This 63-nucleotide sequence from Tolypothrix bouteillei belongs to the Rfam family "Nitrogen stress-induced RNA 1". A reference for the family is Ionescu et al. (2010), "Heterocyst-specific transcription of NsiR1, a non-coding RNA encoded in a tandem array of direct repeats in cyanobacteria", J Mol Biol. The pairing is the family consensus, mapped onto this sequence. Rfam classes the family as a small RNA.
RNA sequence: UGGUAGAUGCACCCUGAUAACUGACUCCCCUGGAUAGCUUUUUAGCUACUAGGGGUCUUUUUU
Dot-bracket structure: .(((......))).............(((((((.((((......)))))))))))........
Numbered sequence: 001u002g003g004u005a006g007a008u009g010c011a012c013c014c015u016g017a018u019a020a021c022u023g024a025c026u027c028c029c030c031u032g033g034a035u036a037g038c039u040u041u042u043u044a045g046c047u048a049c050u051a052g053g054g055g056u057c058u059u060u061u062u063u
Stems, first nucleotide, its partner, number of pairs: 002013003027055007035048004